RNA sequence: CUAGCCGUUGCCUACUUUGGCAUGGCUGGCAACUGGCUAAAAGUUCUG
Numbered sequence: 001c002u003a004g005c006c007g008u009u010g011c012c013u014a015c016u017u018u019g020g021c022a023u024g025g026c027u028g029g030c031a032a033c034u035g036g037c038u039a040a041a042a043g044u045u046c047u048g
Stems, first nucleotide, its partner, number of pairs: 006043001008041001010038001012036003018031002021028001
Annotation:
This 48-nucleotide RNA belongs to the Rfam family "Hepatitis C virus stem-loop SL1412 RNA". A reference for the family is Pirakitikulr et al. (2016), "The Coding Region of the HCV Genome Contains a Network of Regulatory RNA Structures", Mol Cell. Rfam's curators put it in the seed alignment. It is annotated as a cis-regulatory element.